[Rfam]
A member of the RNA family "Purine riboswitch aptamer" from Robertmurraya siralis, 102 nucleotides long. Lineage of the source: Bacteria > Bacillati > Bacillota > Caryophanales > Robertmurraya. The base pairs follow the family's consensus structure, which is taken from published work. A search with the family's covariance model found it, with a score of 86 bits.
RNA sequence: AUUUAAUAUUGUCGUGUACAUCGUAUAAUGUUGGGGAUAUGGCCCAAAAGUUUCUACCAGGCUACCGUAAAUGGCUUGACUACGAAGUAAGUGAUGAUCGAA
Number, nucleotide and partner (000 for none) at each position: 001a000002u000003u000004u000005a000006a000007u000008a000009u000010u000011g000012u000013c000014g000015u000016g000017u000018a088019c087020a000021u085022c084023g083024u082025a081026u000027a000028a000029u049030g000031u047032u046033g045034g044035g043036g000037a000038u000039a000040u000041g000042g000043c035044c034045c033046a032047a031048a000049a029050g000051u000052u000053u000054c000055u000056a000057c000058c078059a077060g076061g075062c074063u073064a072065c000066c000067g000068u000069a000070a000071a000072u064073g063074g062075c061076u060077u059078g058079a000080c000081u025082a024083c023084g022085a021086a000087g019088u018089a000090a000091g000092u000093g000094a000095u000096g000097a000098u000099c000100g000101a000102a000